This 151-nucleotide RNA from Metabacillus sediminilitoris belongs to the Rfam family "SAM riboswitch aptamer (S box leader)".
[Rfam]
RNA sequence: CUCUUAUCAAGAGUUGGCAGAGGGACUUGGCCCAAUGACGCCGCAGCAACCGACCAUAUCAACAUUGGAAACUAAGUGUUUAUUCACGAAGACUUCCAAUUGGCACGGUGCUAAUUCCAUCAGAAAGACAUUCCUUUCUGACAGAUAAGAG
Number, nucleotide and partner (000 for none) at each position: 001c151002u150003c149004u148005u147006a146007u145008c144009a000010a000011g000012a000013g044014u000015u043016g042017g041018c040019a000020g000021a000022g033023g032024g031025a000026c000027u000028u119029g118030g117031c024032c023033c022034a000035a000036u000037g000038a000039c000040g018041c017042c016043g015044c013045a112046g111047c110048a109049a000050c108051c107052g104053a000054c102055c000056a000057u000058a000059u000060c000061a000062a000063c000064a000065u000066u000067g000068g000069a000070a000071a000072c000073u000074a000075a000076g000077u000078g000079u000080u000081u000082a000083u000084u000085c000086a000087c000088g000089a000090a000091g000092a000093c000094u000095u000096c000097c000098a000099a000100u000101u000102g054103g000104c052105a000106c000107g051108g050109u048110g047111c046112u045113a000114a000115u000116u143117c030118c029119a028120u000121c140122a139123g138124a137125a136126a135127g000128a000129c000130a000131u000132u000133c000134c000135u126136u125137u124138c123139u122140g121141a000142c000143a116144g008145a007146u006147a005148a004149g003150a002151g001
Rfam describes the family as follows. The SAM riboswitch is found upstream of a number of genes which code for proteins involved in methionine or cysteine biosynthesis in Gram-positive bacteria. Its family is annotated with regulation of gene expression in the Gene Ontology.